[Rfam]
RNA: Small nucleolar RNA snoR109
RNA sequence: UAGUUAUAAUUUUAUUAAUUACAGGAUCCCAAGCAGGUGGUAGUACUUAGUCCCUUCUCUACUGACCUGCUUGGGAUCCUGUAUGC
Dot-bracket structure: ......................((((((((.(((.(((.((((...............))))..))).))).))))))))......